[Rfam]
RNA sequence: GGGCUUGUGAUGAAAAAAUAUUAUCUUAGCGGAUUUCAGUGAGAUUUUGAUAUUUUUCUUGAUCAAUGAUCUGAUUGUUACACACACUGAAGCCC
Numbered sequence: 001g002g003g004c005u006u007g008u009g010a011u012g013a014a015a016a017a018a019u020a021u022u023a024u025c026u027u028a029g030c031g032g033a034u035u036u037c038a039g040u041g042a043g044a045u046u047u048u049g050a051u052a053u054u055u056u057u058c059u060u061g062a063u064c065a066a067u068g069a070u071c072u073g074a075u076u077g078u079u080a081c082a083c084a085c086a087c088u089g090a091a092g093c094c095c
Stems, first nucleotide, its partner, number of pairs: 001095005
This 95-nucleotide RNA sequence from Striga asiatica belongs to the Rfam family "Small nucleolar RNA R11/Z151".
The base pairs follow the family's consensus structure, which was predicted with PFOLD.
A reference for the family is Barneche et al. (2001), "Identification of 66 box C/D snoRNAs in Arabidopsis thaliana: extensive gene duplications generated multiple isoforms predicting new ribosomal RNA 2'-O-methylation sites", J Mol Biol.
It is annotated as a C/D-box small nucleolar RNA.